[Rfam]
RNA sequence: ACAUUUUUUUCUUGUACGUCGCUCUGGAUAAGAGCGUCUGCCAAAUGCCAAUAA
Numbered sequence: 001a002c003a004u005u006u007u008u009u010u011c012u013u014g015u016a017c018g019u020c021g022c023u024c025u026g027g028a029u030a031a032g033a034g035c036g037u038c039u040g041c042c043a044a045a046u047g048c049c050a051a052u053a054a
Base pairs, nucleotide, nucleotide: 013043014041015040016039020036021035022034023033024032025031
RNA: UnaL2 LINE 3' element
Organism: Conger conger